Background:
The record is a 62-nucleotide RNA sequence from Trypanosoma cruzi, which matches "Trypanosomatid snoRNA TB10Cs3H1" in Rfam. The organism belongs to Schizotrypanum, within Eukaryota.

RNA sequence: AGCGGUGUCGCUAUGCGUCCCCGCAGACAGUGCGGUGCGACGGUACGAAGCACGCGCGAGAG
Numbered sequence: 001a002g003c004g005g006u007g008u009c010g011c012u013a014u015g016c017g018u019c020c021c022c023g024c025a026g027a028c029a030g031u032g033c034g035g036u037g038c039g040a041c042g043g044u045a046c047g048a049a050g051c052a053c054g055c056g057c058g059a060g061a062g
Stems, first nucleotide, its partner, number of pairs: 002057003005053003012045003016042004021035004
The family's consensus secondary structure was predicted with WAR. A reference for the family is Liang et al. (2005), "A genome-wide analysis of C/D and H/ACA-like small nucleolar RNAs in Trypanosoma brucei reveals a trypanosome-specific pattern of rRNA modification", RNA.